[Rfam]
RNA sequence: AGAUGAGAUGAUCAAUGAUUAAUUUCCUUAUUGGCUUGACUGGUCAAGAUGAUGGCCUAAAUACUGAACCGAAUCUGAUCAUCC
Dot-bracket structure: .((((....................................((((........))))......................)))).